Source information:
Rfam assigns this 86-nucleotide RNA sequence from Polarella glacialis to the family "Selenocysteine transfer RNA". The base pairs follow the family's consensus structure, which is taken from published work. On this family, see Mizutani and Goto, FEBS Lett 2000: "Eukaryotic selenocysteine tRNA has the 9/4 secondary structure". The source organism's lineage runs through Eukaryota, Sar, Dinophyceae, Suessiales and Polarella. It scores 50 bits against the family's covariance model. Gene Ontology term of the family: triplet codon-amino acid adaptor activity.
[Rfam]
RNA sequence: GUCAGGGUGAGUCGGGCUGGUGUUCUGUCGGGACUUCAACUCUCGGGGCAUGGGGACAUGCAGGAGUUUGUUUCUUCCUCCUUGAC
Numbered sequence: 001g002u003c004a005g006g007g008u009g010a011g012u013c014g015g016g017c018u019g020g021u022g023u024u025c026u027g028u029c030g031g032g033a034c035u036u037c038a039a040c041u042c043u044c045g046g047g048g049c050a051u052g053g054g055g056a057c058a059u060g061c062a063g064g065a066g067u068u069u070g071u072u073u074c075u076u077c078c079u080c081c082u083u084g085a086c
Stems, first nucleotide, its partner, number of pairs: 001086007009078001012027001014025004028046006048061005063077004